[Rfam]
The family of this 108-nucleotide RNA sequence from Variimorphobacter saccharofermentans is "ZMP/ZTP riboswitch aptamer (pfl RNA motif)".
RNA sequence: AUCAGAUUAUACGACUGACGGAAGUGGAAUUAACCACAUGAAGUAUAAUAUACAAGAGGAGAUUCAUAUUUCACUUGUUAGAUAAAGCCGACCGUCUGGGCGAGAGCC
Numbered sequence: 001a002u003c004a005g006a007u008u009a010u011a012c013g014a015c016u017g018a019c020g021g022a023a024g025u026g027g028a029a030u031u032a033a034c035c036a037c038a039u040g041a042a043g044u045a046u047a048a049u050a051u052a053c054a055a056g057a058g059g060a061g062a063u064u065c066a067u068a069u070u071u072c073a074c075u076u077g078u079u080a081g082a083u084a085a086a087g088c089c090g091a092c093c094g095u096c097u098g099g100g101c102g103a104g105a106g107c108c
Stems, first nucleotide, its partner, number of pairs: 004051001006049007015040001017096005024037004087101003
Dot-bracket structure: ...(.(((((((..(.[[[[[..((((......))))..)..))))))).)...................................(((..]]]]]..))).......